[Rfam]
RNA: mir-1902 microRNA precursor family
Nucleotides: 076
Stems, first nucleotide, its partner, number of pairs: 001076008010067003014062013031045004
Number, partner (000 for none) and nucleotide at each position: 001076g002075u003074u004073u005072a006071u007070u008069u009000u010067g011066a012065g013000a014062g015061u016060g017059u018058u019057u020056g021055c022054u023053g024052u025051a026050u027000a028000a029000u030000c031045g032044g033043a034042c035000u036000u037000a038000a039000g040000a041000u042034g043033u044032u045031u046000a047000g048000a049000g050026g051025u052024g053023c054022a055021g056020u057019a058018g059017g060016c061015a062014u063000g064000a065012c066011u067010u068000u069008g070007a071006a072005u073004a074003g075002a076001u